[Rfam]
Rfam assigns this 77-nucleotide RNA sequence from Oryzias latipes to the family "mir-92 microRNA precursor family". For this family Rfam cites "miRNPs: a novel class of ribonucleoproteins containing numerous microRNAs" (Mourelatos et al., Genes Dev, 2002). This family represents the microRNA precursor mir-92. Human miR-92 has two predicted hairpin precursor sequences: mir-92-1 on chromosome 13 and mir-92-2 on chromosome X. miR-92 has also been cloned from mouse embryonic stem cells. The mature sequence is excised from the 3' arm of the hairpin. Pairs were carried over by alignment from the consensus structure, which was predicted with PFOLD.
Nucleotides: 077
Stems, first nucleotide, its partner, number of pairs: 004073003009068006016061005022055003026052008
Number, partner (000 for none) and nucleotide at each position: 001000u002000g003000u004073c005072c006071u007000g008000u009068g010067c011066a012065g013064g014063u015000g016061g017060g018059g019058a020057u021000u022055a023054g024053u025000a026052g027051c028050a029049a030048u031047g032046c033045u034000g035000u036000u037000c038000u039000c040000c041000a042000c043000g044000a045033g046032g047031u048030a049029u050028u051027g052026c053024a054023c055022u056000u057020g058019u059018c060017c061016c062000g063014g064013c065012c066011u067010g068009u069000a070000a071006a072005g073004g074000a075000a076000c077000g